[Rfam]
RNA sequence: AAGGGAGCAAAAAACCCUCUUGGUCUAUCAAGAGGGCCUUAUUGCUCCUUUUUAU
Numbered sequence: 001a002a003g004g005g006a007g008c009a010a011a012a013a014a015c016c017c018u019c020u021u022g023g024u025c026u027a028u029c030a031a032g033a034g035g036g037c038c039u040u041a042u043u044g045c046u047c048c049u050u051u052u053u054a055u
Stems, first nucleotide, its partner, number of pairs: 001051010012040002017034006
This 55-nucleotide RNA sequence from Patrinia scabra belongs to the Rfam family "Plastid-psbA-3 3UTR RNA". Lineage of the source: Eukaryota > Streptophytina > Embryophyta > campanulids > Patrinia. Rfam's curators write: Plastid psbA-3 is a non-coding RNA (ncRNA) present in plastids.